[Rfam]
RNA sequence: AGCGAGACUAGAGUCACACCCCGACACCCUCCUCGUUGCCCUGGUGUGCUAGAGUCCUCGCAGAUCAAACUUCUCUGCUUAUUCAUUGGCUGUAGCAUCUCAGGGCUCAGCUGAUCACCGGCUCAGAGACACUU
Number, nucleotide and partner (000 for none) at each position: 001a000002g061003c060004g059005a058006g057007a055008c054009u053010a000011g000012a050013g049014u000015c048016a047017c046018a045019c044020c043021c000022c000023g040024a000025c038026a037027c000028c000029c000030u000031c000032c000033u000034c000035g000036u000037u026038g025039c000040c023041c000042u000043g020044g019045u018046g017047u016048g015049c013050u012051a000052g000053a009054g008055u007056c000057c006058u005059c004060g003061c002062a000063g000064a000065u000066c000067a000068a000069a000070c000071u000072u000073c126074u125075c000076u000077g122078c121079u120080u000081a000082u000083u000084c000085a115086u114087u113088g112089g111090c000091u109092g108093u000094a000095g000096c104097a000098u000099c000100u000101c000102a000103g000104g096105g000106c000107u000108c092109a091110g000111c089112u088113g087114a086115u085116c000117a000118c000119c000120g079121g078122c077123u000124c000125a074126g073127a000128g000129a000130c000131a000132c000133u000134u000

Source information: The record is a 134-nucleotide RNA sequence from Atractosteus spatula, which matches "Small nucleolar RNA SNORA3/SNORA45 family" in Rfam. The base pairs follow the family's consensus structure, which was predicted with RNAalifold. NCBI's taxonomy places the organism under Eukaryota, Teleostomi, Actinopterygii, Holostei, Atractosteus. Rfam describes the family as follows. The members of this family belong to the H/ACA class of snoRNAs which are thought to guide the sites of modification of uridines to pseudouridines. This family includes mouse snoMBI-28 and human homologues ACA3 (SNORA3) and ACA3-2 (SNORA45).